[Rfam]
RNA sequence: UGUCCUUUUUCAGUUAUCACAGUACCGGUGCUGUUUUUCAAGAGGUACAGUACUGUGAUAGCUGAAGAGUGGCA
Numbered sequence: 001u002g003u004c005c006u007u008u009u010u011c012a013g014u015u016a017u018c019a020c021a022g023u024a025c026c027g028g029u030g031c032u033g034u035u036u037u038u039c040a041a042g043a044g045g046u047a048c049a050g051u052a053c054u055g056u057g058a059u060a061g062c063u064g065a066a067g068a069g070u071g072g073c074a
Stems, first nucleotide, its partner, number of pairs: 011064015027048001029047004
The family of this 74-nucleotide sequence from Callorhinchus milii is "mir-101 microRNA precursor family". Rfam links the family to the GO terms miRNA-mediated post-transcriptional gene silencing and RISC complex. The match comes from Rfam's covariance-model search (83 bits). For this family Rfam cites "miRNPs: a novel class of ribonucleoproteins containing numerous microRNAs" (Mourelatos et al., Genes Dev, 2002).